A member of the RNA family "Archaeal signal recognition particle RNA" from Halocalculus aciditolerans, 317 nucleotides long. Pairs were carried over by alignment from the consensus structure, which is taken from published work. It scores 186 bits against the family's covariance model. The source organism's lineage runs through Archaea, Methanobacteriati, Methanobacteriota, Halobacteriales and Halocalculus. Clan: SRP clan.
RNA sequence: UGGAUGGACUAGACCGGGCGGUUUGGCCCCGCCCCUCGCCCGCAAAAUGGUCAUUAGCGGGGGUCGAACACCGGACCAGUCCGGUCCGCCCGGACCGGGCCCCGGAAGCCAACAGAGAAGCCUCGUCCUUCGGGGACGGCGGUCCGUCGCCCGCGCGCCUGCAGGGGCGUCGCGGCGCGGUUCGUCGGUGGAACCCCGUCAGGCACGGAAGUGAGCAGCGGCACACCGAACGUCCGUCGCUCGAAGGGUCGCGGGGUGGAGAAGGCGACCGGGACUACCCGGUCCGGAACGACCGGGCGACUCCGGUACGUCCACUA
Number, nucleotide and partner (000 for none) at each position: 001u317002g316003g315004a000005u314006g313007g312008a311009c310010u000011a000012g065013a064014c063015c062016g034017g033018g032019c031020g030021g029022u000023u000024u000025g000026g000027c000028c000029c021030c020031g019032c018033c017034c016035c000036u000037c000038g000039c061040c060041c059042g058043c057044a000045a055046a000047a000048u000049g000050g000051u000052c000053a000054u000055u045056a000057g043058c042059g041060g040061g039062g015063g014064u013065c012066g000067a000068a000069c000070a307071c306072c305073g304074g303075a302076c000077c000078a000079g298080u297081c296082c295083g294084g293085u292086c291087c000088g000089c000090c287091c286092g285093g284094a283095c282096c281097g280098g279099g278100c000101c273102c272103c271104g270105g269106a000107a000108g266109c265110c264111a000112a000113c261114a000115g000116a000117g000118a000119a000120g257121c256122c255123u254124c253125g252126u251127c247128c246129u245130u244131c243132g242133g241134g240135g238136a237137c236138g235139g234140c232141g231142g182143u000144c180145c179146g178147u000148c177149g176150c175151c174152c000153g000154c000155g170156c169157g168158c167159c166160u165161g000162c000163a000164g000165g160166g159167g158168c157169g156170u155171c000172g000173c000174g151175g150176c149177g148178c146179g145180g144181u000182u142183c000184g000185u229186c228187g227188g226189u225190g224191g000192a000193a000194c000195c000196c221197c220198g219199u218200c000201a000202g000203g000204c213205a212206c211207g000208g000209a000210a000211g206212u205213g204214a000215g000216c000217a000218g199219c198220g197221g196222c000223a000224c190225a189226c188227c187228g186229a185230a000231c141232g140233u000234c139235c138236g137237u136238c135239g000240c134241u133242c132243g131244a130245a129246g128247g127248g000249u000250c000251g126252c125253g124254g123255g122256g121257u120258g000259g000260a000261g113262a000263a000264g110265g109266c108267g000268a000269c105270c104271g103272g102273g101274a000275c000276u000277a000278c099279c098280c097281g096282g095283u094284c093285c092286g091287g090288a000289a000290c000291g086292a085293c084294c083295g082296g081297g080298c079299g000300a000301c000302u075303c074304c073305g072306g071307u070308a000309c000310g009311u008312c007313c006314a005315c003316u002317a001